[Rfam]
The record is a 115-nucleotide RNA sequence, which matches "L2-Alphaproteobacteria ribosomal protein leader" in Rfam. The sequence is in the family's curated seed alignment. The family's consensus secondary structure is taken from published work.
RNA sequence: AGGCACCUUAGUAGCCGGUUUCUUGCGAAACCUGCGGGCGGGGGCCUUAAACAUAGCGGCGGGUAAACCUGCCGCCAGUCGGGGAAACCCGACUUAGCUAAACGGAAGACAGAAA
Numbered sequence: 001a002g003g004c005a006c007c008u009u010a011g012u013a014g015c016c017g018g019u020u021u022c023u024u025g026c027g028a029a030a031c032c033u034g035c036g037g038g039c040g041g042g043g044g045c046c047u048u049a050a051a052c053a054u055a056g057c058g059g060c061g062g063g064u065a066a067a068c069c070u071g072c073c074g075c076c077a078g079u080c081g082g083g084g085a086a087a088c089c090c091g092a093c094u095u096a097g098c099u100a101a102a103c104g105g106a107a108g109a110c111a112g113a114a115a
Base pairs, nucleotide, nucleotide: 001047002046003045004044006043007042008041058093060091061090062089063088064087